[Rfam]
RNA sequence: UUGGUGGAUUUGGAGACUUCAACUUGCAGACUUGGAAAAUUUAAUAACAUCAACUUGUAGAUUUUGUAAAUCUAAAGACUCCAGCU
Numbered sequence: 001u002u003g004g005u006g007g008a009u010u011u012g013g014a015g016a017c018u019u020c021a022a023c024u025u026g027c028a029g030a031c032u033u034g035g036a037a038a039a040u041u042u043a044a045u046a047a048c049a050u051c052a053a054c055u056u057g058u059a060g061a062u063u064u065u066g067u068a069a070a071u072c073u074a075a076a077g078a079c080u081c082c083a084g085c086u
Base pairs, nucleotide, nucleotide: 001084002083003082004081006079009076010075011074012073013072014071019066021064025059026058027057028056032053033052034051035050
A member of the RNA family "MIR8024 microRNA precursor family" from Capsicum annuum, 86 nucleotides long.
The base pairs follow the family's consensus structure, which was predicted with RNAalifold.
Rfam links the family to the GO terms RISC complex and miRNA-mediated post-transcriptional gene silencing.
NCBI's taxonomy places the organism under Eukaryota, Mesangiospermae, Pentapetalae, Solanoideae, Capsicum.